Description:
Rfam assigns this 581-nucleotide part of an RNA from Trichinella pseudospiralis to the family "Eukaryotic large subunit ribosomal RNA".

Nucleotides: 581
Base pairs, nucleotide, nucleotide: 001563002562003561004560005559006558007557009553010552011551012550020160021159022158023157024156026154027153028152165543166542167541168540169539170538171537566581567580568579569578
Number, partner (000 for none) and nucleotide at each position: 001563c002562g003561g004560a005559u006558g007557g008000a009553g010552c011551u012550g013000a014000c015000g016000g017000u018000g019000g020160a021159a022158a023157u024156u025000u026154g027153a028152c029000c030000a031000a032000a033000a034000u035000c036000a037000g038000u039000c040000g041000u042000u043000g044000c045000u046000u047000g048000g049000u050000u051000u052000g053000u054000u055000g056000g057000c058000a059000a060000a061000u062000g063000a064000g065000u066000c067000u068000u069000u070000u071000g072000u073000g074000a075000a076000c077000u078000u079000c080000u081000g082000u083000u084000u085000g086000u087000g088000g089000a090000g091000a092000c093000g094000g095000g096000c097000g098000u099000u100000u101000g102000u103000u104000u105000c106000g107000a108000a109000u110000c111000a112000a113000c114000g115000c116000a117000c118000g119000g120000u121000g122000c123000a124000c125000u126000u127000u128000u129000g130000g131000u132000c133000a134000a135000u136000c137000a138000g139000c140000g141000u142000c143000a144000c145000g146000a147000g148000c149000a150000a151000c152028g153027u154026u155000c156024g157023a158022u159021u160020u161000c162000u163000u164000u165543g166542u167541g168540c169539u170538g171537c172000u173000g174000a175000c176000a177000g178000u179000g180000c181000u182000g183000c184000u185000g186000u187000u188000u189000g190000u191000u192000g193000c194000u195000c196000u197000u198000c199000a200000a201000a202000a203000a204000g205000c206000a207000a208000c209000a210000a211000g212000c213000a214000a215000u216000g217000a218000a219000g220000g221000c222000g223000g224000c225000g226000u227000c228000u229000u230000u231000u232000u233000u234000u235000g236000g237000a238000a239000g240000a241000g242000g243000u244000a245000g246000u247000g248000a249000a250000u251000u252000g253000a254000g255000a256000a257000u258000g259000c260000g261000c262000u263000u264000g265000u266000u267000u268000u269000u270000u271000g272000g273000a274000g275000u276000g277000c278000u279000u280000u281000u282000u283000c284000g285000c286000a287000u288000u289000g290000c291000c292000g293000u294000g295000c296000c297000a298000a299000u300000g301000c302000c303000g304000c305000a306000g307000c308000u309000g310000u311000c312000g313000g314000a315000u316000g317000a318000a319000u320000g321000u322000u323000g324000u325000c326000a327000u328000u329000g330000c331000a332000a333000a334000a335000u336000u337000g338000a339000a340000a341000a342000g343000c344000a345000u346000c347000g348000u349000u350000u351000c352000g353000c354000g355000u356000u357000g358000u359000g360000u361000u362000g363000c364000a365000u366000u367000g368000g369000g370000u371000c372000c373000g374000u375000u376000g377000g378000u379000g380000c381000c382000g383000u384000u385000g386000c387000g388000u389000u390000c391000g392000u393000g394000u395000g396000u397000u398000u399000c400000g401000g402000c403000g404000c405000a406000c407000g408000a409000u410000u411000g412000a413000a414000c415000u416000g417000g418000u419000u420000a421000g422000u423000u424000g425000g426000g427000a428000a429000a430000a431000a432000a433000g434000u435000c436000a437000a438000u439000u440000a441000u442000u443000c444000a445000u446000c447000a448000u449000a450000a451000u452000u453000g454000a455000u456000c457000u458000g459000a460000c461000u462000g463000c464000c465000g466000u467000g468000c469000g470000u471000a472000a473000c474000g475000g476000u477000a478000u479000u480000c481000u482000c483000u484000c485000a486000u487000u488000g489000g490000u491000g492000u493000g494000a495000u496000g497000g498000a499000c500000u501000u502000u503000a504000u505000u506000u507000g508000u509000g510000g511000c512000c513000a514000a515000c516000g517000c518000u519000c520000g521000g522000u523000g524000u525000g526000u527000u528000u529000u530000u531000u532000c533000a534000u535000c536000u537171g538170u539169g540168g541167c542166g543165u544000c545000a546000a547000u548000g549000u550012u551011a552010g553009c554000c555000u556000c557007c558006c559005a560004u561003c562002c563001g564000a565000c566581c567580c568579g569578u570000c571000u572000u573000g574000a575000a576000a577000c578569a579568c580567g581566g
Gene Ontology terms of the family: ribosome and structural constituent of ribosome.